This 81-nucleotide RNA from Paenibacillus oryzae belongs to the Rfam family "c-di-GMP-I-GGC riboswitch aptamer".
Clan: c-di-GMP_I riboswitch clan.
The match comes from Rfam's covariance-model search (61 bits).
The family's consensus secondary structure is taken from published work.

[Rfam]
RNA sequence: CACGAUAAUAGCAAACCUAUCGAAAGGUAGGGACGCAAAGCUAUAGGGCCUUCUCUAGGGAUGGUAGCCUGGCCGCCGAAA
Dot-bracket structure: ..((......((...((((((....))))))..[))...(((..((((((............))).]))))))...))...